[Rfam]
Rfam assigns this 365-nucleotide part of an RNA from Monosporascus sp. CRB-9-2 to the family "Ascomycota telomerase RNA". Lineage of the source: Eukaryota > saccharomyceta > Xylariomycetidae > Xylariales > Monosporascus. Rfam 15.1 lists 475 matches to the family in 456 species.
RNA sequence: UUCAACAGAGAGAGCUUCUUUGAAGUCGGUUCGACAGGAAUGUUAAGAUGGCAACCGCCGAUUUCGAUAAGCGAAUUUGUCUGCGACAGUUCUGGUUUCUUGGAAGCUAAUGACGAGGUCAUCGGAGUCGGAGGUUAAGGUAAUCAGCAUGAAUUGCUUCGCCUCACAAGAAGCGGAGACCGGGACCCAUCUAGAGUUGGAGUCAAAGCUUAGCGCUUGGCCGGUCUUUGCGGAUUGCCUGUAGCAGCAUUCAUAACGAUGACCUACCAAUUCAAUUUUUUGAUUUUGUCAAUUUGGAAGACUGGUCUAAAGACAAACCGUAGGCUGUUCUCUGCUCUGGUGGAGGACAGCCCCCUAUACUUUUU
Numbered sequence: 001u002u003c004a005a006c007a008g009a010g011a012g013a014g015c016u017u018c019u020u021u022g023a024a025g026u027c028g029g030u031u032c033g034a035c036a037g038g039a040a041u042g043u044u045a046a047g048a049u050g051g052c053a054a055c056c057g058c059c060g061a062u063u064u065c066g067a068u069a070a071g072c073g074a075a076u077u078u079g080u081c082u083g084c085g086a087c088a089g090u091u092c093u094g095g096u097u098u099c100u101u102g103g104a105a106g107c108u109a110a111u112g113a114c115g116a117g118g119u120c121a122u123c124g125g126a127g128u129c130g131g132a133g134g135u136u137a138a139g140g141u142a143a144u145c146a147g148c149a150u151g152a153a154u155u156g157c158u159u160c161g162c163c164u165c166a167c168a169a170g171a172a173g174c175g176g177a178g179a180c181c182g183g184g185a186c187c188c189a190u191c192u193a194g195a196g197u198u199g200g201a202g203u204c205a206a207a208g209c210u211u212a213g214c215g216c217u218u219g220g221c222c223g224g225u226c227u228u229u230g231c232g233g234a235u236u237g238c239c240u241g242u243a244g245c246a247g248c249a250u251u252c253a254u255a256a257c258g259a260u261g262a263c264c265u266a267c268c269a270a271u272u273c274a275a276u277u278u279u280u281u282g283a284u285u286u287u288g289u290c291a292a293u294u295u296g297g298a299a300g301a302c303u304g305g306u307c308u309a310a311a312g313a314c315a316a317a318c319c320g321u322a323g324g325c326u327g328u329u330c331u332c333u334g335c336u337c338u339g340g341u342g343g344a345g346g347a348c349a350g351c352c353c354c355c356u357a358u359a360c361u362u363u364u365u
Stems, first nucleotide, its partner, number of pairs: 184204003187200003206218004